This 179-nucleotide RNA sequence from Paenibacillus oceani belongs to the Rfam family "c-di-AMP riboswitch aptamer (ydaO/yuaA leader)". Gene Ontology terms of the family: regulation of gene expression and cyclic-di-AMP binding. It scores 89 bits against the family's covariance model.
RNA sequence: CCCUUUUAUUCGCUGAAUUGCCUUGCAGGCAAACGGGGGAACCAUUUGCGGGGGUUUGUGUGAGAGCAAGCUUCUGUGCGGGGUGAAUCCUGCCACCGGGAUCGACUCGUUGGCAGGUAGGGCGACUCUCACCGUCCGAAUCCGACAGCUAACCUCGCAAGCGACAGAAGAGAGGCAGC
Numbered sequence: 001c002c003c004u005u006u007u008a009u010u011c012g013c014u015g016a017a018u019u020g021c022c023u024u025g026c027a028g029g030c031a032a033a034c035g036g037g038g039g040a041a042c043c044a045u046u047u048g049c050g051g052g053g054g055u056u057u058g059u060g061u062g063a064g065a066g067c068a069a070g071c072u073u074c075u076g077u078g079c080g081g082g083g084u085g086a087a088u089c090c091u092g093c094c095a096c097c098g099g100g101a102u103c104g105a106c107u108c109g110u111u112g113g114c115a116g117g118u119a120g121g122g123c124g125a126c127u128c129u130c131a132c133c134g135u136c137c138g139a140a141u142c143c144g145a146c147a148g149c150u151a152a153c154c155u156c157g158c159a160a161g162c163g164a165c166a167g168a169a170g171a172g173a174g175g176c177a178g179c
Stems, first nucleotide, its partner, number of pairs: 011163004018032005034157005043080001081143003089117007120137004